[Rfam]
RNA sequence: AGGCAGCCCCUUUGCUCAAAAACCAAUGGCAUCGGAGGUGUUAUUUUGUUCGGAAAUCAAGUUCUUGUGUUCUUCAGAGGAGAAGGGGGGGGAUCUGUCUCCUCCUCUACCCCUUUGAUGCUAGUCUCUACUAGGCAUAAGUACAUC
Numbered sequence: 001a002g003g004c005a006g007c008c009c010c011u012u013u014g015c016u017c018a019a020a021a022a023c024c025a026a027u028g029g030c031a032u033c034g035g036a037g038g039u040g041u042u043a044u045u046u047u048g049u050u051c052g053g054a055a056a057u058c059a060a061g062u063u064c065u066u067g068u069g070u071u072c073u074u075c076a077g078a079g080g081a082g083a084a085g086g087g088g089g090g091g092g093a094u095c096u097g098u099c100u101c102c103u104c105c106u107c108u109a110c111c112c113c114u115u116u117g118a119u120g121c122u123a124g125u126c127u128c129u130a131c132u133a134g135g136c137a138u139a140a141g142u143a144c145a146u147c
Base pairs, nucleotide, nucleotide: 002042003041004040005039007038008037009035010034013031014030015029016028064141065140066139069136070135071134076129077128078127079126080125082121084119087113088112089111
The family of this 147-nucleotide RNA from Asparagus officinalis is "Small nucleolar RNA snoR77". It scores 80 bits against the family's covariance model. Pairs were carried over by alignment from the consensus structure, which was predicted with WAR. The organism belongs to Asparagus, within Eukaryota. A reference for the family is Marker et al. (2002), "Experimental RNomics: identification of 140 candidates for small non-messenger RNAs in the plant Arabidopsis thaliana", Curr Biol. Rfam classes the family as an H/ACA-box small nucleolar RNA.